[Rfam]
RNA sequence: GAAAAUAGGCUAUUUUAGUAUUUCUCCAGUAGGUUUUCUGGAGGAGAAAGCCUUC
Numbered sequence: 001g002a003a004a005a006u007a008g009g010c011u012a013u014u015u016u017a018g019u020a021u022u023u024c025u026c027c028a029g030u031a032g033g034u035u036u037u038c039u040g041g042a043g044g045a046g047a048a049a050g051c052c053u054u055c
Stems, first nucleotide, its partner, number of pairs: 032052008
Dot-bracket structure: ...............................((((((((.....))))))))...
U7 small nuclear RNA: a 55-nucleotide sequence from Hucho hucho. A search with the family's covariance model found it, with a score of 34 bits. Taxonomically the source falls in Hucho (Eukaryota, Deuterostomia, Teleostei, Protacanthopterygii).